[Rfam]
RNA sequence: CAGGAAGCAAAGGAGCUCCACUCAGUUCAAUACAGGGGGCAGAGAUGGCUGAAAGAGCUGCCAUCUCAUGCAUUCGGUUACGCUUAACCUUUCUAUUCUAUUAUAUAUAUUGGCUGACUAGCUGGAAAUGAAGAAUAUUUGCGAAGGAUUAAGUUUGGCCCGAUGCAUGGCAUGGGAGCACCAACUCCUUCCUCAUACUUUGCCCGCCCAUUGGACUGAAGGGAGCUCCUGUUUUCAUCACA
Numbered sequence: 001c002a003g004g005a006a007g008c009a010a011a012g013g014a015g016c017u018c019c020a021c022u023c024a025g026u027u028c029a030a031u032a033c034a035g036g037g038g039g040c041a042g043a044g045a046u047g048g049c050u051g052a053a054a055g056a057g058c059u060g061c062c063a064u065c066u067c068a069u070g071c072a073u074u075c076g077g078u079u080a081c082g083c084u085u086a087a088c089c090u091u092u093c094u095a096u097u098c099u100a101u102u103a104u105a106u107a108u109a110u111u112g113g114c115u116g117a118c119u120a121g122c123u124g125g126a127a128a129u130g131a132a133g134a135a136u137a138u139u140u141g142c143g144a145a146g147g148a149u150u151a152a153g154u155u156u157g158g159c160c161c162g163a164u165g166c167a168u169g170g171c172a173u174g175g176g177a178g179c180a181c182c183a184a185c186u187c188c189u190u191c192c193u194c195a196u197a198c199u200u201u202g203c204c205c206g207c208c209c210a211u212u213g214g215a216c217u218g219a220a221g222g223g224a225g226c227u228c229c230u231g232u233u234u235u236c237a238u239c240a241c242a
Base pairs, nucleotide, nucleotide: 013228014227015226016225017224018223019222023218024217025216026215027214028213029212036205058178059177061175062174063173067169068168069167070166075162076161077160